RNA sequence: CACUUCCCUUUCAGUUUGCCAAUGUGACUUAGGUCUUCAUUCAAGUGAGACAAAGGAAAUGUCCUUUAAAAGUUCAUAUACAAACUGGAUGUUUCUCUUGUAACCUGUUAGAGGACACAAUA
Numbered sequence: 001c002a003c004u005u006c007c008c009u010u011u012c013a014g015u016u017u018g019c020c021a022a023u024g025u026g027a028c029u030u031a032g033g034u035c036u037u038c039a040u041u042c043a044a045g046u047g048a049g050a051c052a053a054a055g056g057a058a059a060u061g062u063c064c065u066u067u068a069a070a071a072g073u074u075c076a077u078a079u080a081c082a083a084a085c086u087g088g089a090u091g092u093u094u095c096u097c098u099u100g101u102a103a104c105c106u107g108u109u110a111g112a113g114g115a116c117a118c119a120a121u122a
Stems, first nucleotide, its partner, number of pairs: 033051004040044001062115006075100001078098001080096001082094004